Shown here is an 89-nucleotide RNA from Rhipicephalus microplus, a member of the family "mir-5316 microRNA precursor family". A search with the family's covariance model found it, with a score of 78 bits. Pairs were carried over by alignment from the consensus structure, which was predicted with RNAalifold.
[Rfam]
RNA sequence: GUACCACGUGCAGGCUCGCGAAAAUGUACAGGUUGGCAUUGAUUGAAUAAUUUGUCACCAGGGCCUUAUAGACUAGCCUUCCAUGGUUU
Numbered sequence: 001g002u003a004c005c006a007c008g009u010g011c012a013g014g015c016u017c018g019c020g021a022a023a024a025u026g027u028a029c030a031g032g033u034u035g036g037c038a039u040u041g042a043u044u045g046a047a048u049a050a051u052u053u054g055u056c057a058c059c060a061g062g063g064c065c066u067u068a069u070a071g072a073c074u075a076g077c078c079u080u081c082c083a084u085g086g087u088u089u
Base pairs, nucleotide, nucleotide: 003087004086005085006084012079013078014077015076016075018073019071021069023067024066026064027063029061031059032058033057035056036055037054038053